[Rfam]
RNA sequence: CAAGGAAGCAUCCAAAGGGAUCGCAUUGAUCCCGAGUCUCAUAUAUAUUGUCUUCUGUACAUAUAUUUACCGAAUUGGGAUCAUGCUAUCCCUUUGGAUUCCUCCUU
Numbered sequence: 001c002a003a004g005g006a007a008g009c010a011u012c013c014a015a016a017g018g019g020a021u022c023g024c025a026u027u028g029a030u031c032c033c034g035a036g037u038c039u040c041a042u043a044u045a046u047a048u049u050g051u052c053u054u055c056u057g058u059a060c061a062u063a064u065a066u067u068u069a070c071c072g073a074a075u076u077g078g079g080a081u082c083a084u085g086c087u088a089u090c091c092c093u094u095u096g097g098a099u100u101c102c103u104c105c106u107u
Stems, first nucleotide, its partner, number of pairs: 002107005008101001010099012023086004028082005036075001

Record summary:
Shown here is a 107-nucleotide sequence from Centaurea solstitialis, a member of the family "mir-393 microRNA precursor family". The organism belongs to Centaurea, within Eukaryota. The base pairs follow the family's consensus structure.